[Rfam]
RNA sequence: CCGCAGUCUCCAGCAUGGGGGGGCCUCGCGUGGCCCCUGCCAUUCCUGUAGCGCUGCCAGAACAUCCCGGGGCUGUUUGAGGCCGCUCCCGGCGCUUCCCGGGGGCGGUCAUAGAAUCCUCGGACAUGC
Numbered sequence: 001c002c003g004c005a006g007u008c009u010c011c012a013g014c015a016u017g018g019g020g021g022g023g024c025c026u027c028g029c030g031u032g033g034c035c036c037c038u039g040c041c042a043u044u045c046c047u048g049u050a051g052c053g054c055u056g057c058c059a060g061a062a063c064a065u066c067c068c069g070g071g072g073c074u075g076u077u078u079g080a081g082g083c084c085g086c087u088c089c090c091g092g093c094g095c096u097u098c099c100c101g102g103g104g105g106c107g108g109u110c111a112u113a114g115a116a117u118c119c120u121c122g123g124a125c126a127u128g129c
Base pairs, nucleotide, nucleotide: 003057004056005055006054007053016042017041018040021036022035023034024033025032068122069121070120071119072118083108084107085106086105087104088103090101091100092099
RNA: Small nucleolar RNA SNORA9